A member of the RNA family "Streptomyces-metH RNA" from Streptomyces radiopugnans, 120 nucleotides long. The family's consensus secondary structure is taken from published work. It scores 91 bits against the family's covariance model.
RNA sequence: GGAGUCCACGCCUCGGAACACCUGCGGCCCCCGCGGUGCCGACAGAUACCCUGGCCGGGUGCGCUUCCCGAUGGAAGACGCAAAGCCGACAGCCGUCGCAUCUCUGGGAGUCCUUCCAUG
Dot-bracket structure: ...........................................................((((.((((....))))..))))..((.(((....))))).....................
It is annotated as a small RNA.